[Rfam]
This 76-nucleotide RNA sequence from Acanthochromis polyacanthus belongs to the Rfam family "mir-208 microRNA precursor family". Lineage of the source: Eukaryota > Clupeocephala > Eurypterygia > Ctenosquamata > Acanthochromis. Gene Ontology terms of the family: RISC complex and miRNA-mediated post-transcriptional gene silencing. The literature on the family includes a 2010 paper in BMC Genomics by Linsen et al., "Small RNA expression and strain specificity in the rat". Rfam 15.1 lists 563 matches to the family in 255 species.
RNA sequence: UCUAUCAGAUCAGCUUUUUGUUUGUGUUAUGUUCCUACUAAAAUGUAAGACGAACAAAAAGUUUGUCUGUUAGAUG
Numbered sequence: 001u002c003u004a005u006c007a008g009a010u011c012a013g014c015u016u017u018u019u020g021u022u023u024g025u026g027u028u029a030u031g032u033u034c035c036u037a038c039u040a041a042a043a044u045g046u047a048a049g050a051c052g053a054a055c056a057a058a059a060a061g062u063u064u065g066u067c068u069g070u071u072a073g074a075u076g
Stems, first nucleotide, its partner, number of pairs: 003072002006069001008067002012063007020055001023052002027048006